[Rfam]
RNA: Alphaproteobacteria transfer-messenger RNA
RNA sequence: CCCUUUGAAAUCCGGGCGUGGCGGCCCUAUAAGAACCUUGUCGCUUCGGCGACUAUGGACAUAAACGCGCUCGUCAUAAGCGGAUCGGACCCGGGGGCGGUACCCGGCGGCUCCACCAAACAUCCCUUGUUGGGGGAUCAUGGGGCCGAAACAGGAUCGACGAACGUCUAAAGGGGUUAGCUUUGUCUCGGCUGUCUGCCACCGUUACCGGCGAAAAAAGUACAAUUGCCAACAACAAUCGUGCUCCGAUGGCUCUGGCCGCGUAAGCGGUUCGAUCUAUCGAAACUUAAGCCCUUUGGCCUAGCAGCUUAAGGCGGGGUUCGCAGGUACCUGGCAACAGAAACCUGCACU
Numbered sequence: 001c002c003c004u005u006u007g008a009a010a011u012c013c014g015g016g017c018g019u020g021g022c023g024g025c026c027c028u029a030u031a032a033g034a035a036c037c038u039u040g041u042c043g044c045u046u047c048g049g050c051g052a053c054u055a056u057g058g059a060c061a062u063a064a065a066c067g068c069g070c071u072c073g074u075c076a077u078a079a080g081c082g083g084a085u086c087g088g089a090c091c092c093g094g095g096g097g098c099g100g101u102a103c104c105c106g107g108c109g110g111c112u113c114c115a116c117c118a119a120a121c122a123u124c125c126c127u128u129g130u131u132g133g134g135g136g137a138u139c140a141u142g143g144g145g146c147c148g149a150a151a152c153a154g155g156a157u158c159g160a161c162g163a164a165c166g167u168c169u170a171a172a173g174g175g176g177u178u179a180g181c182u183u184u185g186u187c188u189c190g191g192c193u194g195u196c197u198g199c200c201a202c203c204g205u206u207a208c209c210g211g212c213g214a215a216a217a218a219a220g221u222a223c224a225a226u227u228g229c230c231a232a233c234a235a236c237a238a239u240c241g242u243g244c245u246c247c248g249a250u251g252g253c254u255c256u257g258g259c260c261g262c263g264u265a266a267g268c269g270g271u272u273c274g275a276u277c278u279a280u281c282g283a284a285a286c287u288u289a290a291g292c293c294c295u296u297u298g299g300c301c302u303a304g305c306a307g308c309u310u311a312a313g314g315c316g317g318g319g320u321u322c323g324c325a326g327g328u329a330c331c332u333g334g335c336a337a338c339a340g341a342a343a344c345c346u347g348c349a350c351u
Base pairs, nucleotide, nucleotide: 040053041052042051043050044049057188058187059186060185061184067181068180069177070176071175072174081166082165085163086162087161091107092106093105094104095103108148109147110146111145112144113143114142189204190203191202195214196213198212199211200210317332318331319330320329323348324347325346326345327344328343